[Rfam]
RNA sequence: AAAUCCCUCUUUGAAGAGGGACCGAAAAUGAACUUGUUCAUUUUCAGGGGGAUGUA
Numbered sequence: 001a002a003a004u005c006c007c008u009c010u011u012u013g014a015a016g017a018g019g020g021a022c023c024g025a026a027a028a029u030g031a032a033c034u035u036g037u038u039c040a041u042u043u044u045c046a047g048g049g050g051g052a053u054g055u056a
Base pairs, nucleotide, nucleotide: 004021005020006019007018008017009016010015024045025044026043027042028041029040030039031038032037
RNA: Whalefall-1 RNA